Rfam assigns this 77-nucleotide RNA sequence from Shigella flexneri to the family "Nucleoid-associated noncoding RNA 4 (CssrE)". About the family: In E. coli small RNA transcribed from repeated extragenic palindromic element (REP325) called nucleoid-associated ncRNA 4 (nRNA4) collaborates HU protein in condensing the DNA. The secondary structure but not the sequence of the RNA is important in nucleoid condensation. Also identified in Shigella as CssrE. A search with the family's covariance model found it, with a score of 65 bits. The family's RNA type in Rfam is small RNA. Gene Ontology terms of the family: bacterial nucleoid DNA packaging, protein binding and bacterial nucleoid.
RNA sequence: AGUCGGAUAAGGCGUCCACGCCGCAUCCGACAGUCGAGCAUCAAUGCCUGAUGCGAUGCUGCGCAUCUUAUCAGGAC
Numbered sequence: 001a002g003u004c005g006g007a008u009a010a011g012g013c014g015u016c017c018a019c020g021c022c023g024c025a026u027c028c029g030a031c032a033g034u035c036g037a038g039c040a041u042c043a044a045u046g047c048c049u050g051a052u053g054c055g056a057u058g059c060u061g062c063g064c065a066u067c068u069u070a071u072c073a074g075g076a077c
Base pairs, nucleotide, nucleotide: 002031003030004029005028006027007026008025011022012021013020014019047075048074049073050072051071052070053069055067056066057065058064059063